[Rfam]
A member of the RNA family "Guanidine-II riboswitch aptamer (mini-ykkC)" from Halopseudomonas phragmitis, 47 nucleotides long. A search with the family's covariance model found it, with a score of 34 bits. About the family: Simpler in structure and has fewer highly conserved nucleotide positions than the ykkC-yxkD leader. Lineage of the source: Bacteria > Pseudomonadati > Pseudomonadota > Gammaproteobacteria > Halopseudomonas.
RNA sequence: CCGCCGGGACGACCCGGUGUGUAUUCCGCUUUUCAGGGACGACCCUG
Numbered sequence: 001c002c003g004c005c006g007g008g009a010c011g012a013c014c015c016g017g018u019g020u021g022u023a024u025u026c027c028g029c030u031u032u033u034c035a036g037g038g039a040c041g042a043c044c045c046u047g
Stems, first nucleotide, its partner, number of pairs: 002019007034047005